[Rfam]
RNA sequence: AACAUGCUCCUUAGAUCCACCUUUGGGAUGUGUCUGUUAGGCUGCACUGGUAGAUCUGUUUCAUCCUGGUGUUGGGUUCUCCAGUGGGCUGGCAGGUGACAUUCAUCAACUUGUGGUUGUACAGUCAAAUGUGCUUGAGUCAUUGGCUUGUCAGAGUAUUAUACCUGCACGAUAGACCCUAUGUUCUGAUAGGAAUAACCUGUUAUUUCCGGCAGUUUCUGCCAUCAGGACUUUGCUGCUGUGUGGACAUG
Numbered sequence: 001a002a003c004a005u006g007c008u009c010c011u012u013a014g015a016u017c018c019a020c021c022u023u024u025g026g027g028a029u030g031u032g033u034c035u036g037u038u039a040g041g042c043u044g045c046a047c048u049g050g051u052a053g054a055u056c057u058g059u060u061u062c063a064u065c066c067u068g069g070u071g072u073u074g075g076g077u078u079c080u081c082c083a084g085u086g087g088g089c090u091g092g093c094a095g096g097u098g099a100c101a102u103u104c105a106u107c108a109a110c111u112u113g114u115g116g117u118u119g120u121a122c123a124g125u126c127a128a129a130u131g132u133g134c135u136u137g138a139g140u141c142a143u144u145g146g147c148u149u150g151u152c153a154g155a156g157u158a159u160u161a162u163a164c165c166u167g168c169a170c171g172a173u174a175g176a177c178c179c180u181a182u183g184u185u186c187u188g189a190u191a192g193g194a195a196u197a198a199c200c201u202g203u204u205a206u207u208u209c210c211g212g213c214a215g216u217u218u219c220u221g222c223c224a225u226c227a228g229g230a231c232u233u234u235g236c237u238g239c240u241g242u243g244u245g246g247a248c249a250u251g
Stems, first nucleotide, its partner, number of pairs: 002151003006147003010139005018133003022129004026104005031098004037092004042088001045086003050081001052080003107119005165246005174237002177235001185229006192222001196221002198217001200212003
Shown here is a 251-nucleotide RNA sequence from Scyliorhinus torazame, a member of the family "Small nucleolar RNA SNORA53". Lineage of the source: Eukaryota > Gnathostomata > Galeoidea > Carcharhiniformes > Scyliorhinus. Rfam links the family to the GO terms RNA processing and nucleolus. Rfam's curators write: The snoRNA ACA53 belongs to the H/ACA family of pseudouridylation guide snoRNAs.